Description:
U7 small nuclear RNA: a 61-nucleotide RNA sequence from Pelodiscus sinensis. Taxonomically the source falls in Pelodiscus (Eukaryota, Metazoa, Chordata, Vertebrata). A search with the family's covariance model found it, with a score of 59 bits.
RNA sequence: CAGUGAUUUCAGCUCUUUUAGUAUUUGUCUAGCAGGCUCUCUGCGCUGCCAGGGAGCCUCC
Numbered sequence: 001c002a003g004u005g006a007u008u009u010c011a012g013c014u015c016u017u018u019u020a021g022u023a024u025u026u027g028u029c030u031a032g033c034a035g036g037c038u039c040u041c042u043g044c045g046c047u048g049c050c051a052g053g054g055a056g057c058c059u060c061c
Stems, first nucleotide, its partner, number of pairs: 035058009